[Rfam]
RNA sequence: UGACCCUGGGAAUCCAGAGUGGGUGAGGCCUGUCUGCCCUUUCUAGGCGACCCCCUCUUGGUUUCCAUGGUUU
Numbered sequence: 001u002g003a004c005c006c007u008g009g010g011a012a013u014c015c016a017g018a019g020u021g022g023g024u025g026a027g028g029c030c031u032g033u034c035u036g037c038c039c040u041u042u043c044u045a046g047g048c049g050a051c052c053c054c055c056u057c058u059u060g061g062u063u064u065c066c067a068u069g070g071u072u073u
Base pairs, nucleotide, nucleotide: 002072003071004070005069007067009065010064011063012062013061014060016058017057021053022052023051024050028048029047030046031045
This 73-nucleotide RNA sequence from Neogale vison belongs to the Rfam family "mir-551 microRNA precursor family".
Lineage of the source: Eukaryota > Chordata > Tetrapoda > Amniota > Neogale.
Its family is annotated with miRNA-mediated post-transcriptional gene silencing and RISC complex in the Gene Ontology.